[Rfam]
RNA sequence: UUGUCAGUGAGGUUAAUCCUUACCUGUUCCUUCUCCGGGAGAAACAGCACAUGAUGAAUGGAGGAGACUGAGUCGCUGAUUACUCUGUACUCCGGUCCUGUCUGGUGUGACAUUCCAGUCUGGGUCAUUCUGAU
Numbered sequence: 001u002u003g004u005c006a007g008u009g010a011g012g013u014u015a016a017u018c019c020u021u022a023c024c025u026g027u028u029c030c031u032u033c034u035c036c037g038g039g040a041g042a043a044a045c046a047g048c049a050c051a052u053g054a055u056g057a058a059u060g061g062a063g064g065a066g067a068c069u070g071a072g073u074c075g076c077u078g079a080u081u082a083c084u085c086u087g088u089a090c091u092c093c094g095g096u097c098c099u100g101u102c103u104g105g106u107g108u109g110a111c112a113u114u115c116c117a118g119u120c121u122g123g124g125u126c127a128u129u130c131u132g133a134u
Stems, first nucleotide, its partner, number of pairs: 025042001028040003070092002073089001074087002077082001096123002100120001102118004
Dot-bracket structure: ........................(..(((.......))).)...........................((.(((.(....)...)).).))...((..(.((((.........)))).).))...........
This 134-nucleotide sequence belongs to the Rfam family "U8 small nucleolar RNA". For this family Rfam cites "The U8 snoRNA gene family: identification and characterization of distinct, functional U8 genes in Xenopus" (Peculis et al., Gene, 2001). The family's consensus secondary structure is taken from published work. Rfam classes the family as a C/D-box small nucleolar RNA. Its family is annotated with nucleolus and RNA processing in the Gene Ontology. It is one of the family's seed sequences.